Record summary
Rfam assigns this 73-nucleotide RNA sequence from Ceutorhynchus assimilis to the family "tRNA". The family's consensus secondary structure is taken from published work. Gene Ontology term of the family: triplet codon-amino acid adaptor activity.
Nucleotides: 073
Base pairs, nucleotide, nucleotide: 001072002071003070004069005068006067007066010025011024012023013022027043028042029041030040031039049065050064051063052062053061
Number, partner (000 for none) and nucleotide at each position: 001072g002071u003070c004069u005068u006067g007066g008000u009000a010025g011024c012023u013022c014000a015000g016000u017000u018000g019000g020000u021000a022013g023012a024011g025010c026000g027043u028042u029041g030040c031039a032000g033000u034000a035000g036000a037000a038000a039031u040030g041029c042028g043027a044000g045000g046000g047000u048000c049065c050064u051063g052062g053061g054000u055000u056000c057000a058000a059000a060000u061053c062052c063051u064050a065049g066007u067006c068005a069004a070003g071002g072001c073000a

A search with the family's covariance model found it, with a score of 54 bits.